[Rfam]
RNA sequence: UCGACUGUACUUACAAGGAUCUUGUAUACAGUAAACAACUUUGCCUUUGUUUCCGAACAAAGUCGCAGCAACCAGGCUGGACGAUGAUUUAUACUGCACUGCCCGUAAAGGGAAGUGUGUGAUGAAUACAGUUGUGCUUUAAGUAUUGUAUAGAUGAAGUGUUUGCUCACUGAAUCUAUUUAUUGUUUAUAGCUGGCGAUUCAUCACGUUGAUGAUCUUGCGAGCUGUUUACUUGUUAAAUGGCGAGCGAGGGCAGAUGCAGAUUCUGACAGCCC
Numbered sequence: 001u002c003g004a005c006u007g008u009a010c011u012u013a014c015a016a017g018g019a020u021c022u023u024g025u026a027u028a029c030a031g032u033a034a035a036c037a038a039c040u041u042u043g044c045c046u047u048u049g050u051u052u053c054c055g056a057a058c059a060a061a062g063u064c065g066c067a068g069c070a071a072c073c074a075g076g077c078u079g080g081a082c083g084a085u086g087a088u089u090u091a092u093a094c095u096g097c098a099c100u101g102c103c104c105g106u107a108a109a110g111g112g113a114a115g116u117g118u119g120u121g122a123u124g125a126a127u128a129c130a131g132u133u134g135u136g137c138u139u140u141a142a143g144u145a146u147u148g149u150a151u152a153g154a155u156g157a158a159g160u161g162u163u164u165g166c167u168c169a170c171u172g173a174a175u176c177u178a179u180u181u182a183u184u185g186u187u188u189a190u191a192g193c194u195g196g197c198g199a200u201u202c203a204u205c206a207c208g209u210u211g212a213u214g215a216u217c218u219u220g221c222g223a224g225c226u227g228u229u230u231a232c233u234u235g236u237u238a239a240a241u242g243g244c245g246a247g248c249g250a251g252g253g254c255a256g257a258u259g260c261a262g263a264u265u266c267u268g269a270c271a272g273c274c275c
Stems, first nucleotide, its partner, number of pairs: 003039001006034001008033004016027001018025001047071005053065001055063001075274005094262005099256006109219004119207003124201001
This 275-nucleotide sequence from Smittium simulii belongs to the Rfam family "ACEA small nucleolar RNA U3". Lineage of the source: Eukaryota > Opisthokonta > Kickxellomycota > Kickxellomycotina > Smittium. A reference for the family is Marz and Stadler (2010), "Comparative analysis of eukaryotic U3 snoRNA", RNA Biol. From the family's description: Small nucleolar RNAs (snoRNAs) are involved in the processing and modification of rRNA in the nucleolus. There are two main classes of snoRNAs: the box C/D class, and the box H/ACA class.